[Rfam]
A member of the RNA family "LOOT RNA", 118 nucleotides long.
RNA sequence: CACCUAAACUCGUAAGAAAUUACGGGCAUGGUAGACAAUCGCAGUACACAUAGACCCCGUCAUUAGGGCGUGUACUGCGUUAUACAGGGAAACUUGUAUAGGCGACCGUAAGGUUGCU
Number, nucleotide and partner (000 for none) at each position: 001c000002a032003c031004c030005u000006a000007a000008a000009c026010u025011c024012g023013u022014a021015a020016g000017a000018a000019a000020u015021u014022a013023c012024g011025g010026g009027c000028a000029u000030g004031g003032u002033a000034g000035a000036c000037a000038a000039u000040c079041g078042c077043a076044g075045u074046a073047c072048a071049c070050a000051u000052a000053g069054a000055c068056c067057c066058c000059g000060u000061c000062a000063u000064u000065a000066g057067g056068g055069c053070g049071u048072g047073u046074a045075c044076u043077g042078c041079g040080u000081u100082a099083u098084a097085c096086a095087g094088g093089g000090a000091a000092a000093c088094u087095u086096g085097u084098a083099u082100a081101g118102g117103c116104g115105a114106c113107c000108g000109u000110a000111a000112g000113g106114u105115u104116g103117c102118u101